Shown here is a 159-nucleotide RNA sequence from Bamboo mosaic virus satellite RNA, a member of the family "Bamboo mosaic virus satellite RNA cis-regulatory element". The literature on the family includes a 2003 paper in Virology by Annamalai et al., "Structural and mutational analyses of cis-acting sequences in the 5'-untranslated region of satellite RNA of bamboo mosaic potexvirus". Gene Ontology term of the family: RNA replication. This family represents a cis-regulatory element found in the 5' UTR of bamboo mosaic virus satellite RNA (satBaMV). Rfam's curators put it in the seed alignment.
RNA sequence: GAAAACUCACCGCAACGAAACGAAAACAAUCGUUCAGAAAUACUUGACCACGAGGGGUCCCCUAUAGUCCGCUUUGGCGGUGCGGCAGCCCCCGUGCGAUAGGCUAACUGCGGUAUUCCCCGCACUCCGUCGAGCGGUUAAUACGACGCUUACCAAGAC
Numbered sequence: 001g002a003a004a005a006c007u008c009a010c011c012g013c014a015a016c017g018a019a020a021c022g023a024a025a026a027c028a029a030u031c032g033u034u035c036a037g038a039a040a041u042a043c044u045u046g047a048c049c050a051c052g053a054g055g056g057g058u059c060c061c062c063u064a065u066a067g068u069c070c071g072c073u074u075u076g077g078c079g080g081u082g083c084g085g086c087a088g089c090c091c092c093c094g095u096g097c098g099a100u101a102g103g104c105u106a107a108c109u110g111c112g113g114u115a116u117u118c119c120c121c122g123c124a125c126u127c128c129g130u131c132g133a134g135c136g137g138u139u140a141a142u143a144c145g146a147c148g149c150u151u152a153c154c155a156a157g158a159c
Base pairs, nucleotide, nucleotide: 009138010137011136012135013134015130016129017128019034020033021032022031023030035110036109037108043102044101049096050095051094052093054092055091056090057089058088061085062084069080070079112126113125114124116122